[Rfam]
This 142-nucleotide RNA from Hipposideros armiger belongs to the Rfam family "Small nucleolar RNA SNORA67". Rfam describes the family as follows. U67 belongs to the H/ACA class of snoRNAs which are thought to guide the sites of modification of uridines to pseudouridines. Its family is annotated with RNA processing and nucleolus in the Gene Ontology. Lineage of the source: Eukaryota > Bilateria > Dipnotetrapodomorpha > Boreoeutheria > Hipposideros. Rfam classes the family as an H/ACA-box small nucleolar RNA.
RNA sequence: UUCCAAGGUGAUCACCUCUCCAAGGGGCCAACUAAUGCCUCAAAACUCCCCAGAAACAUAGCAACUUGGGAUAAAAUCUGACAUGCCCAAGGUCUGCAAGGGUAUGGGGAUGUUUCCUUUUGACCUCUGACUGCCUAUAUAU
Numbered sequence: 001u002u003c004c005a006a007g008g009u010g011a012u013c014a015c016c017u018c019u020c021c022a023a024g025g026g027g028c029c030a031a032c033u034a035a036u037g038c039c040u041c042a043a044a045a046c047u048c049c050c051c052a053g054a055a056a057c058a059u060a061g062c063a064a065c066u067u068g069g070g071a072u073a074a075a076a077u078c079u080g081a082c083a084u085g086c087c088c089a090a091g092g093u094c095u096g097c098a099a100g101g102g103u104a105u106g107g108g109g110a111u112g113u114u115u116c117c118u119u120u121u122g123a124c125c126u127c128u129g130a131c132u133g134c135c136u137a138u139a140u141a142u
Base pairs, nucleotide, nucleotide: 002070003069004068005067006066007065009063010062019055021053023047024041025040026039027038028037081132084130091124097122098121100119101118102117
Dot-bracket structure: .((((((.((........(.(.((((((........))))).....).....).)......)).))))))..........(..(......(.....((.(((..............))).)).).....).)..........